[Rfam]
RNA sequence: UCCUGGCGGACGCCCGUGUCUGCGCCUGCUUGUGGAUGAUGCUGUUAGUGGCCCAGGUAGAAGCUGCCUUGG
Dot-bracket structure: .....(((((((....)))))))((..((((..(..((...............))..)..)))).)).....